A member of the RNA family "7SK RNA" from Tursiops truncatus, 292 nucleotides long. 7SK was discovered as an abundant small nuclear RNA in the mid-70s but a possible function has only recently been suggested. Two independent studies have found that 7SK RNA binds the CDK9/cyclin T complex (known as elongation factor P-TEFb). The family has 45 seed sequences and 49,373 matches in Rfam 15.1. The organism belongs to Tursiops, within Eukaryota. It is annotated as a non-coding RNA gene.
RNA sequence: GGAUGUGAGGGCGAUCUGGCUGCGACAUCUGUCACCCCAUUGAUCGCCAGGGUUGAUUCGGCUGAUCUGGUUGGCUAGGCGGGUGUCCCCUUCCUCCCUCACCGCUCCAUGUGCGUCCCUCCCGAAGCUGCGCGCUCGGUCGAAGAGGACGACCUUCCCCGAUAGAGGAGGACAGUUCUUCGGUCAAGGGUAUACGAGUAGCUGCGCUCCCCUGCUAGAACCUCCAAACAAGCUCUCAAGGUCCAUUUGUAGGAGAACGUAGGGUAGUCAAGCUUCCAAGACUCCAGCAAUU
Numbered sequence: 001g002g003a004u005g006u007g008a009g010g011g012c013g014a015u016c017u018g019g020c021u022g023c024g025a026c027a028u029c030u031g032u033c034a035c036c037c038c039a040u041u042g043a044u045c046g047c048c049a050g051g052g053u054u055g056a057u058u059c060g061g062c063u064g065a066u067c068u069g070g071u072u073g074g075c076u077a078g079g080c081g082g083g084u085g086u087c088c089c090c091u092u093c094c095u096c097c098c099u100c101a102c103c104g105c106u107c108c109a110u111g112u113g114c115g116u117c118c119c120u121c122c123c124g125a126a127g128c129u130g131c132g133c134g135c136u137c138g139g140u141c142g143a144a145g146a147g148g149a150c151g152a153c154c155u156u157c158c159c160c161g162a163u164a165g166a167g168g169a170g171g172a173c174a175g176u177u178c179u180u181c182g183g184u185c186a187a188g189g190g191u192a193u194a195c196g197a198g199u200a201g202c203u204g205c206g207c208u209c210c211c212c213u214g215c216u217a218g219a220a221c222c223u224c225c226a227a228a229c230a231a232g233c234u235c236u237c238a239a240g241g242u243c244c245a246u247u248u249g250u251a252g253g254a255g256a257a258c259g260u261a262g263g264g265u266a267g268u269c270a271a272g273c274u275u276c277c278a279a280g281a282c283u284c285c286a287g288c289a290a291u292u
Stems, first nucleotide, its partner, number of pairs: 001108003005102007013093002018090002024087010035074002037070003042067004046062003116171002118168004122139004127135002140162003147158003201273003207267002210264006222255004228250005
Dot-bracket structure: (((.(((((((.((...((....((((((((((.(((((..(((((((...........))).)))))))..))...)))))))))).)).))..)))))))...))).......((((((((((.((.....))))))(((....(((......))).)))..)))).)).............................(((...((.((((((......((((..(((((.............))))).))))...)))))).))...)))...................